[Rfam]
RNA sequence: GCCGGUCCUCGGUAGUGGCCCCCGGGUGGUCAACCCCCGGUGGCUUCGAUCGAAGACCGGC
Dot-bracket structure: (((((((.(((((...((((.(((((.(.....).))))).))))...))))).)))))))

Shown here is a 61-nucleotide sequence from Actinacidiphila rubida, a member of the family "Actino-pnp RNA". Taxonomically the source falls in Actinacidiphila (Bacteria, Bacillati, Actinomycetota, Kitasatosporales). Rfam classes the family as a cis-regulatory element.